[Rfam]
RNA: Fluoride riboswitch aptamer (crcB RNA motif)
RNA sequence: CACACAUUCGGGAAUGAAGUGCUCCCGUAACCGUAAUUGGUAAAACCGCUUGAGAGAGCUGAUGACUUCUGUGAAUAC
Numbered sequence: 001c002a003c004a005c006a007u008u009c010g011g012g013a014a015u016g017a018a019g020u021g022c023u024c025c026c027g028u029a030a031c032c033g034u035a036a037u038u039g040g041u042a043a044a045a046c047c048g049c050u051u052g053a054g055a056g057a058g059c060u061g062a063u064g065a066c067u068u069c070u071g072u073g074a075a076u077a078c
Stems, first nucleotide, its partner, number of pairs: 010026004016069005048059004